The family of this 587-nucleotide part of an RNA from Nitratidesulfovibrio vulgaris is "Bacterial large subunit ribosomal RNA". Pairs were carried over by alignment from the consensus structure, which is taken from published work. Lineage of the source: Bacteria > Desulfovibrionia > Desulfovibrionales > Nitratidesulfovibrio > Nitratidesulfovibrio vulgaris. Rfam's curators put it in the seed alignment.

RNA sequence: CCCGCAGAAAGACGGAAAGACCCUGUGCACCUUUACUAUAGCUUGACAUUGGGUUUUGGGCUUGCAUGUGUAGGAUAGGUGGGAGGCUGUGAACCCUGUACGCCAGUAUGGGGGGAGCCACCGUUGAAAUACCACCCUUGCAAGUCUAAGGCUCUAAUUCAUACCCGUUACCCGGGAUGGAGACAGUGUCUGGUGGGUAGUUUGACUGGGGCGGUCGCCUCCCAAACAAUAACGGAGGCACGCAAAGGUUCCCUCAGCCUGAUCGGAAACCAGGCGUCGAGUGCAAACGCAUAAGGGAGCUUGACUGCAAGACAGACAUGUCGAGCAGGGACGAAAGUCGGCGUUAGUGAUCCGGUGGUUCCGCAUGGAAGGGCCAUCGCUCAUUGGAUAAAAGGUACGCCGGGGAUAACAGGCUGAUCGCGCCCAAGAGUUCAUAUCGACGGCGCGGUUUGGCACCUCGAUGUCGGCUCAUCACAUCCUGGGGCUGAAGCAGGUCCCAAGGGUACGGCUGUUCGCCGUUUAAAGUGGUACGCGAGCUGGGUUUAAAACGUCGUGAGACAGUUUGGUCCCUAUCUUCUGUGGGCGUA
Numbered sequence: 001c002c003c004g005c006a007g008a009a010a011g012a013c014g015g016a017a018a019g020a021c022c023c024u025g026u027g028c029a030c031c032u033u034u035a036c037u038a039u040a041g042c043u044u045g046a047c048a049u050u051g052g053g054u055u056u057u058g059g060g061c062u063u064g065c066a067u068g069u070g071u072a073g074g075a076u077a078g079g080u081g082g083g084a085g086g087c088u089g090u091g092a093a094c095c096c097u098g099u100a101c102g103c104c105a106g107u108a109u110g111g112g113g114g115g116a117g118c119c120a121c122c123g124u125u126g127a128a129a130u131a132c133c134a135c136c137c138u139u140g141c142a143a144g145u146c147u148a149a150g151g152c153u154c155u156a157a158u159u160c161a162u163a164c165c166c167g168u169u170a171c172c173c174g175g176g177a178u179g180g181a182g183a184c185a186g187u188g189u190c191u192g193g194u195g196g197g198u199a200g201u202u203u204g205a206c207u208g209g210g211g212c213g214g215u216c217g218c219c220u221c222c223c224a225a226a227c228a229a230u231a232a233c234g235g236a237g238g239c240a241c242g243c244a245a246a247g248g249u250u251c252c253c254u255c256a257g258c259c260u261g262a263u264c265g266g267a268a269a270c271c272a273g274g275c276g277u278c279g280a281g282u283g284c285a286a287a288c289g290c291a292u293a294a295g296g297g298a299g300c301u302u303g304a305c306u307g308c309a310a311g312a313c314a315g316a317c318a319u320g321u322c323g324a325g326c327a328g329g330g331a332c333g334a335a336a337g338u339c340g341g342c343g344u345u346a347g348u349g350a351u352c353c354g355g356u357g358g359u360u361c362c363g364c365a366u367g368g369a370a371g372g373g374c375c376a377u378c379g380c381u382c383a384u385u386g387g388a389u390a391a392a393a394g395g396u397a398c399g400c401c402g403g404g405g406a407u408a409a410c411a412g413g414c415u416g417a418u419c420g421c422g423c424c425c426a427a428g429a430g431u432u433c434a435u436a437u438c439g440a441c442g443g444c445g446c447g448g449u450u451u452g453g454c455a456c457c458u459c460g461a462u463g464u465c466g467g468c469u470c471a472u473c474a475c476a477u478c479c480u481g482g483g484g485c486u487g488a489a490g491c492a493g494g495u496c497c498c499a500a501g502g503g504u505a506c507g508g509c510u511g512u513u514c515g516c517c518g519u520u521u522a523a524a525g526u527g528g529u530a531c532g533c534g535a536g537c538u539g540g541g542u543u544u545a546a547a548a549c550g551u552c553g554u555g556a557g558a559c560a561g562u563u564u565g566g567u568c569c570c571u572a573u574c575u576u577c578u579g580u581g582g583g584c585g586u587a
Stems, first nucleotide, its partner, number of pairs: 001583008010575003014570002022404004027400002029396005035201004042193002045190004051154016068137001078136005085119003094113008158181003164176004204216004217239006240385001242342002248300006254280002257275005281290002305328004311322003330339003353379007361372002413454003417451001418448007428438002465540001466538004470532001471529005478503002481498006505519005546564004550559003